[Rfam]
RNA: U7 small nuclear RNA
RNA sequence: AGGAAUCUUUGCUCUUUCAGACAUUUUCUAGAAGGAUUUCUAUAAAAGAAAUCCCAC
Dot-bracket structure: .................................((((((((.....))))))))...